Description: Shown here is a 101-nucleotide sequence from Erwinia sorbitola, a member of the family "Gammaprotebacteria rimP leader". On this family, see Naville and Gautheret, Genome Biol 2010: "Premature terminator analysis sheds light on a hidden world of bacterial transcriptional attenuation". The organism belongs to Erwinia, within Bacteria. The family's consensus secondary structure is taken from published work. The family's RNA type in Rfam is cis-regulatory leader.
[Rfam]
RNA sequence: CCGCCAAUGGCGGUUUACAGGGUCCAGUCGCAUUAAGCCCCGAUAAUUCGGGGUUUUUUGUUAUCAGGAAACAGCAUCACUGGGCUAUAGGCCCUUUUUUU
Numbered sequence: 001c002c003g004c005c006a007a008u009g010g011c012g013g014u015u016u017a018c019a020g021g022g023u024c025c026a027g028u029c030g031c032a033u034u035a036a037g038c039c040c041c042g043a044u045a046a047u048u049c050g051g052g053g054u055u056u057u058u059u060g061u062u063a064u065c066a067g068g069a070a071a072c073a074g075c076a077u078c079a080c081u082g083g084g085c086u087a088u089a090g091g092c093c094c095u096u097u098u099u100u101u
Stems, first nucleotide, its partner, number of pairs: 035056008082094004

A search with the family's covariance model found it, with a score of 85 bits.